[Rfam]
RNA sequence: GAAAACAUUGGUGAGAAUCCAAUGCCCCGAAAACCUAAGGGUUCCUCCGCAAGGUUCGUCCACGGAGGGUGAGUCAGGUCCUAAGAUCAGGCCGAGAGGCGUAGUUGAUGGACAACGGGUUAAUAUUCCCGUACUGCCCCUUGUUGGUCCCGAGGGACGGAGGAGGCUAGGUUAGCCGAAAGGUGGUUAUCGGUUCAAGGACGCAAAGCUAAUAAACCUGAGGGGUAGAGAAAAUGCCUCGAGCCAACGUCCGAGUACUAGGCGCUACGGCGCCGAAGUAACCCAUGCCACACUCCCAAGAAAAGCUCGAACGACCUUUGACAAGUGGGUACCUGUACCCGAAACCGACACAGGUGGGUAGGUAGAGAAUACCUAGGGGCG
Numbered sequence: 001g002a003a004a005a006c007a008u009u010g011g012u013g014a015g016a017a018u019c020c021a022a023u024g025c026c027c028c029g030a031a032a033a034c035c036u037a038a039g040g041g042u043u044c045c046u047c048c049g050c051a052a053g054g055u056u057c058g059u060c061c062a063c064g065g066a067g068g069g070u071g072a073g074u075c076a077g078g079u080c081c082u083a084a085g086a087u088c089a090g091g092c093c094g095a096g097a098g099g100c101g102u103a104g105u106u107g108a109u110g111g112a113c114a115a116c117g118g119g120u121u122a123a124u125a126u127u128c129c130c131g132u133a134c135u136g137c138c139c140c141u142u143g144u145u146g147g148u149c150c151c152g153a154g155g156g157a158c159g160g161a162g163g164a165g166g167c168u169a170g171g172u173u174a175g176c177c178g179a180a181a182g183g184u185g186g187u188u189a190u191c192g193g194u195u196c197a198a199g200g201a202c203g204c205a206a207a208g209c210u211a212a213u214a215a216a217c218c219u220g221a222g223g224g225g226u227a228g229a230g231a232a233a234a235u236g237c238c239u240c241g242a243g244c245c246a247a248c249g250u251c252c253g254a255g256u257a258c259u260a261g262g263c264g265c266u267a268c269g270g271c272g273c274c275g276a277a278g279u280a281a282c283c284c285a286u287g288c289c290a291c292a293c294u295c296c297c298a299a300g301a302a303a304a305g306c307u308c309g310a311a312c313g314a315c316c317u318u319u320g321a322c323a324a325g326u327g328g329g330u331a332c333c334u335g336u337a338c339c340c341g342a343a344a345c346c347g348a349c350a351c352a353g354g355u356g357g358g359u360a361g362g363u364a365g366a367g368a369a370u371a372c373c374u375a376g377g378g379g380c381g
Base pairs, nucleotide, nucleotide: 006024007023008022009021010020011019025379026378027377028376033359034358035357036356039339040338044068045067046066047065048064049063053061054060075335076334077333078332080111081110085106086105087104089102091100092099093098115132116131117130118129119128135331136330137329138328139327140325141324142323143322144321145320146316147315151309152308153307154306159296160295161294162293165289166288167287170283171282172281173280174279175194176193177192178191179190195257199252200251201250202249259276261274262273263272264271265270345354346353361373362372363371364370